Record summary
Rfam assigns this 81-nucleotide RNA sequence from Neotoma lepida to the family "Small nucleolar RNA SNORD121A". The match comes from Rfam's covariance-model search (90 bits). Rfam classes the family as a C/D-box small nucleolar RNA. The organism belongs to Neotoma, within Eukaryota.

RNA sequence: GACCAGGAAACAAUGAUGUGAUGAUUUCCAAGCACAUAUCUGAUGAUUCCGUGUGGAGUUCAGCUACUGAGUUUCCUGGGC
Numbered sequence: 001g002a003c004c005a006g007g008a009a010a011c012a013a014u015g016a017u018g019u020g021a022u023g024a025u026u027u028c029c030a031a032g033c034a035c036a037u038a039u040c041u042g043a044u045g046a047u048u049c050c051g052u053g054u055g056g057a058g059u060u061c062a063g064c065u066a067c068u069g070a071g072u073u074u075c076c077u078g079g080g081c
Base pairs, nucleotide, nucleotide: 001081003079004078005077006076008074009073010072011071
Dot-bracket structure: (.((((.((((...........................................................)))).)))).)